[Rfam]
RNA: Lysine riboswitch aptamer
Organism: Parahaemophilus pittmaniae
RNA sequence: CCGCAACGUAGAGGUGCGGACAUUAUAAGUAGUUAUUUGGAGCGGAUAGCGGAGAUGAAUAACGAAAGGAAUGGCCGCCGAAAUCGGUUGAAAGUCAUUUUGACUGGUUGGUAGCGUCUUCGAAAGGAACGUUACUGUCAUAGUUUUUCACUAUGGAGCGCUACGGUGAGU
Numbered sequence: 001c002c003g004c005a006a007c008g009u010a011g012a013g014g015u016g017c018g019g020a021c022a023u024u025a026u027a028a029g030u031a032g033u034u035a036u037u038u039g040g041a042g043c044g045g046a047u048a049g050c051g052g053a054g055a056u057g058a059a060u061a062a063c064g065a066a067a068g069g070a071a072u073g074g075c076c077g078c079c080g081a082a083a084u085c086g087g088u089u090g091a092a093a094g095u096c097a098u099u100u101u102g103a104c105u106g107g108u109u110g111g112u113a114g115c116g117u118c119u120u121c122g123a124a125a126g127g128a129a130c131g132u133u134a135c136u137g138u139c140a141u142a143g144u145u146u147u148u149c150a151c152u153a154u155g156g157a158g159c160g161c162u163a164c165g166g167u168g169a170g171u
Stems, first nucleotide, its partner, number of pairs: 007165005016078004021073004032063008082109012110136008119127002138156007